[Rfam]
The family of this 145-nucleotide RNA sequence from Dasypus novemcinctus is "Small Cajal body specific RNA 11". It is one of the family's seed sequences. The family has 24 seed sequences and 853 matches in Rfam 15.1. The organism belongs to Dasypus, within Eukaryota. Pairs were carried over by alignment from the consensus structure, which was predicted with RNAalifold.
RNA sequence: UCGUCCUGGCUUAUGCUUUUUUCUGCUCCCCUGUGCUCAGGUCUAACAGGGGAGUCGGUAGCAUGACGCACAGGAAAUCUUCCCUCUCAGUUUAUGAGGGCCAUCCUAAGAAUAGGACUGGCUCUUAUAGGCACGAGACGACAGU
Numbered sequence: 001u002c003g004u005c006c007u008g009g010c011u012u013a014u015g016c017u018u019u020u021u022u023c024u025g026c027u028c029c030c031c032u033g034u035g036c037u038c039a040g041g042u043c044u045a046a047c048a049g050g051g052g053a054g055u056c057g058g059u060a061g062c063a064u065g066a067c068g069c070a071c072a073g074g075a076a077a078u079c080u081u082c083c084c085u086c087u088c089a090g091u092u093u094a095u096g097a098g099g100g101c102c103a104u105c106c107u108a109a110g111a112a113u114a115g116g117a118c119u120g121g122c123u124c125u126u127a128u129a130g131g132c133a134c135g136a137g138a139c140g141a142c143a144g145u
Stems, first nucleotide, its partner, number of pairs: 002068004007063002010061002025055003029051006083140001085138004090132004096126007104117005